Notes
A member of the RNA family "Actinobacteria sRNA Ms_IGR-5" from Stackebrandtia endophytica, 225 nucleotides long. The pairing is the family consensus, mapped onto this sequence.

Nucleotides: 225
Stems, first nucleotide, its partner, number of pairs: 015058005060143004065138002068135004073130001075128001160219002163216001165214004170209003174195006
Number, partner (000 for none) and nucleotide at each position: 001000a002000c003000a004000c005000g006000u007000g008000a009000a010000a011000g012000g013000a014000g015058g016057u017056g018055g019054u020000c021000c022000a023000g024000a025000a026000g027000a028000u029000g030000c031000a032000u033000u034000u035000u036000g037000c038000u039000u040000g041000g042000a043000c044000u045000c046000g047000u048000g049000a050000g051000g052000u053000g054019g055018u056017c057016g058015c059000g060143c061142g062141c063140u064000a065138g066137u067000c068135g069134u070133c071132g072000c073130g074000c075128a076000a077000c078000c079000g080000a081000u082000c083000a084000u085000u086000g087000g088000a089000c090000g091000g092000u093000c094000g095000u096000g097000c098000a099000u100000u101000g102000c103000c104000c105000g106000a107000a108000u109000c110000u111000c112000c113000g114000g115000g116000a117000g118000g119000g120000a121000g122000c123000c124000a125000g126000g127000c128075u129000c130073c131000c132071u133070g134069a135068c136000g137066g138065c139000g140063g141062g142061c143060g144000a145000a146000a147000a148000c149000c150000a151000c152000g153000c154000g155000a156000u157000c158000a159000c160219c161218g162000g163216a164000g165214c166213u167212c168211a169000u170209g171208g172207g173000u174195g175194u176193c177192g178191u179190g180000c181000c182000u183000u184000g185000u186000c187000c188000a189000a190179c191178a192177c193176g194175a195174c196000a197000c198000g199000g200000g201000a202000c203000c204000g205000c206000c207172u208171c209170c210000u211168u212167g213166a214165g215000a216163u217000g218161c219160g220000c221000c222000c223000c224000a225000g

The organism belongs to Stackebrandtia, within Bacteria.